[Rfam]
RNA sequence: CAAUCUAGCGAGAGCUAACUUCGUAUAAUCCCACUAAUCAGCAUCCUUAGCUUUAGGUGUGGGAGUCUCUACCAGAAGCCUCAAUUUCUGAUUACGAAGAGUAAGCGAGCGAUC
Number, nucleotide and partner (000 for none) at each position: 001c000002a000003a000004u000005c000006u000007a000008g000009c000010g000011a000012g000013a000014g000015c000016u000017a000018a000019c099020u098021u097022c096023g095024u094025a093026u000027a000028a000029u064030c063031c062032c061033a060034c059035u000036a000037a000038u000039c000040a000041g000042c000043a000044u000045c000046c000047u000048u000049a000050g000051c000052u000053u000054u000055a000056g000057g000058u000059g034060u033061g032062g031063g030064a029065g000066u000067c000068u000069c000070u000071a000072c000073c090074a089075g088076a087077a086078g085079c000080c000081u000082c000083a000084a000085u078086u077087u076088c075089u074090g073091a000092u000093u025094a024095c023096g022097a021098a020099g019100a000101g000102u000103a000104a000105g000106c000107g000108a000109g000110c000111g000112a000113u000114c000